[Rfam]
RNA sequence: AAUAACAUAAGCCUAAGUUUAAAACGCGGGGGAACCAUUAAUUGGGGUGAAUCACAUUUAUUUUGUGUAGGUUAGCCUUUACCGAACCCGUCAGCUAACCCCGUUGGUAAAAGGAGUGAAUAA
Numbered sequence: 001a002a003u004a005a006c007a008u009a010a011g012c013c014u015a016a017g018u019u020u021a022a023a024a025c026g027c028g029g030g031g032g033a034a035c036c037a038u039u040a041a042u043u044g045g046g047g048u049g050a051a052u053c054a055c056a057u058u059u060a061u062u063u064u065g066u067g068u069a070g071g072u073u074a075g076c077c078u079u080u081a082c083c084g085a086a087c088c089c090g091u092c093a094g095c096u097a098a099c100c101c102c103g104u105u106g107g108u109a110a111a112a113g114g115a116g117u118g119a120a121u122a123a
Base pairs, nucleotide, nucleotide: 011108012107013106017025018024019023026104027103028102029101030100031099036044037043045089046088047087053067054066055065056064070083071082072081
This 123-nucleotide RNA sequence from Clostridium tetani belongs to the Rfam family "c-di-AMP riboswitch aptamer (ydaO/yuaA leader)". NCBI's taxonomy places the organism under Bacteria, Bacillati, Clostridia, Clostridium, Clostridium tetani.